[Rfam]
RNA: Ribosomal S15 leader
Organism: Duffyella gerundensis
RNA sequence: UUGGGUCGCUGAAUUAGAGAUCGGCACCCUUACAUUCAUUUUUUUAUUGGAGUUUAUUAUGUCUCUAAGCGUUGAAGCUAAAGCAGAGAUCGUUGCUAAAUACGGUCGUGGUACU
Numbered sequence: 001u002u003g004g005g006u007c008g009c010u011g012a013a014u015u016a017g018a019g020a021u022c023g024g025c026a027c028c029c030u031u032a033c034a035u036u037c038a039u040u041u042u043u044u045u046a047u048u049g050g051a052g053u054u055u056a057u058u059a060u061g062u063c064u065c066u067a068a069g070c071g072u073u074g075a076a077g078c079u080a081a082a083g084c085a086g087a088g089a090u091c092g093u094u095g096c097u098a099a100a101u102a103c104g105g106u107c108g109u110g111g112u113a114c115u
Base pairs, nucleotide, nucleotide: 008025009024010023011022012021047068048067049066050065051064052063